[Rfam]
RNA: Purine riboswitch aptamer
Organism: Bacillus sp. PK3_68
RNA sequence: UCGAAUAAUCGAUUUCUCCUUCAUAUAUUUUCGACAAUAUGGGUCGAAAGUUUCUACUAAAUCACCGUAAAUGAUUGGACUAUGAGGGCAGAUUCUUUUUGU
Numbered sequence: 001u002c003g004a005a006u007a008a009u010c011g012a013u014u015u016c017u018c019c020u021u022c023a024u025a026u027a028u029u030u031u032c033g034a035c036a037a038u039a040u041g042g043g044u045c046g047a048a049a050g051u052u053u054c055u056a057c058u059a060a061a062u063c064a065c066c067g068u069a070a071a072u073g074a075u076u077g078g079a080c081u082a083u084g085a086g087g088g089c090a091g092a093u094u095c096u097u098u099u100u101g102u
Base pairs, nucleotide, nucleotide: 018088019087020086021085022084023083024082025081029049030048031047032046033045034044035043058078060076061075062074063073064072